[Rfam]
RNA sequence: UGCCGGAUGAUGACACCAUUCUCAUGUUCGCAGUUGAGAGUUGGAUGAAAAAGAACCACUCGAUGAAGUGUCUUUGUAGCCUUCACUUAGAUGUCUGACACAGAGCG
Dot-bracket structure: ((((..................................................................................................).)))

Shown here is a 107-nucleotide sequence from Plasmodium vivax, a member of the family "small nucleolar RNA snoR13". For this family Rfam cites "Structural RNAs of known and unknown function identified in malaria parasites by comparative genomics and RNA analysis" (Chakrabarti et al., RNA, 2007). Lineage of the source: Eukaryota > Aconoidasida > Haemosporida > Plasmodium > Plasmodium. Gene Ontology terms of the family: nucleolus and RNA processing. The family's RNA type in Rfam is C/D-box small nucleolar RNA. A search with the family's covariance model found it, with a score of 78 bits. The pairing is the family consensus, mapped onto this sequence.